[Rfam]
This 68-nucleotide sequence from Oryctolagus cuniculus belongs to the Rfam family "Small nucleolar RNA SNORD77". The family has 21 seed sequences and 396 matches in Rfam 15.1. By type it is a C/D-box small nucleolar RNA. Its Rfam clan is "SNORD77 clan". The base pairs follow the family's consensus structure, which was predicted with RNAalifold. Taxonomically the source falls in Oryctolagus (Eukaryota, Eumetazoa, Bilateria, Chordata). U77 belongs to the C/D family of snoRNAs. It is predicted to guide 2'O-ribose methylation of large 28S rRNA subunit at position A1521. The C/D snoRNAs U44, U47, U74, U75, U76, U78, U79, U80 and U81 share the same host gene as U77 (non-coding). It is one of the family's seed sequences. Rfam links the family to the GO terms nucleolus and RNA processing.
RNA sequence: AUACUAUGAUGGUUGCAUAGUUCAUCAGAUUGAAUUCUGAAGAGAUGUAUCAUUGGUCUGAUGUAUCU
Numbered sequence: 001a002u003a004c005u006a007u008g009a010u011g012g013u014u015g016c017a018u019a020g021u022u023c024a025u026c027a028g029a030u031u032g033a034a035u036u037c038u039g040a041a042g043a044g045a046u047g048u049a050u051c052a053u054u055g056g057u058c059u060g061a062u063g064u065a066u067c068u
Stems, first nucleotide, its partner, number of pairs: 001066004006038001008036003013028003044054004